[Rfam]
RNA sequence: GGGCCCCGGCUGGCCGCUGACGGGCCGUUCAGGCCCGAGGAAACUCCGCCCUCCCCGCGGCACCGGGGCCCCGAGAGGGGGCGCGGGUAACACCCGCGGCAACGGCACAGAAACGGCACGCCCACCCGCGGGAGGACGAUGAGGCGGCGAGGGCUCCCCGGCGACGGGGAGCCAGUAACCCGCUGAGGACCCGGGUGGGUGCGUUGAAACGGCCGUCCCCCGGGGAGCAAGGCGGCGCGCCGAUGAGGGCCGCGCGAUUGGCGCGCCGGCGUCCGCUUAGUCGGAUGCGGCCGUAGGUACAGAAGGCGGGUUAUAGCCGGGGCCC
Numbered sequence: 001g002g003g004c005c006c007c008g009g010c011u012g013g014c015c016g017c018u019g020a021c022g023g024g025c026c027g028u029u030c031a032g033g034c035c036c037g038a039g040g041a042a043a044c045u046c047c048g049c050c051c052u053c054c055c056c057g058c059g060g061c062a063c064c065g066g067g068g069c070c071c072c073g074a075g076a077g078g079g080g081g082c083g084c085g086g087g088u089a090a091c092a093c094c095c096g097c098g099g100c101a102a103c104g105g106c107a108c109a110g111a112a113a114c115g116g117c118a119c120g121c122c123c124a125c126c127c128g129c130g131g132g133a134g135g136a137c138g139a140u141g142a143g144g145c146g147g148c149g150a151g152g153g154c155u156c157c158c159c160g161g162c163g164a165c166g167g168g169g170a171g172c173c174a175g176u177a178a179c180c181c182g183c184u185g186a187g188g189a190c191c192c193g194g195g196u197g198g199g200u201g202c203g204u205u206g207a208a209a210c211g212g213c214c215g216u217c218c219c220c221c222g223g224g225g226a227g228c229a230a231g232g233c234g235g236c237g238c239g240c241c242g243a244u245g246a247g248g249g250c251c252g253c254g255c256g257a258u259u260g261g262c263g264c265g266c267c268g269g270c271g272u273c274c275g276c277u278u279a280g281u282c283g284g285a286u287g288c289g290g291c292c293g294u295a296g297g298u299a300c301a302g303a304a305g306g307c308g309g310g311u312u313a314u315a316g317c318c319g320g321g322g323c324c325c
Stems, first nucleotide, its partner, number of pairs: 001325003005321007012292006021037005042312003046309005051227004056256004063223005068082005083097005098218002103215004119203003122198007141173001231274002233271001237264005
Shown here is a 325-nucleotide sequence from Hyperthermus butylicus, a member of the family "Archaeal RNase P". The family's RNA type in Rfam is ribozyme. Its family is annotated with tRNA processing, ribonuclease P activity and multimeric ribonuclease P complex in the Gene Ontology. It is one of the family's seed sequences. From the family's description: Ribonuclease P (RNase P) is a ubiquitous endoribonuclease, found in archaea, bacteria and eukarya as well as chloroplasts and mitochondria. Its best characterised activity is the generation of mature 5'-ends of tRNAs by cleaving the 5'-leader elements of precursor-tRNAs. Cellular RNase Ps are ribonucleoproteins. RNA from bacterial RNase Ps retains its catalytic activity in the absence of the protein subunit, i.e. it is a ribozyme.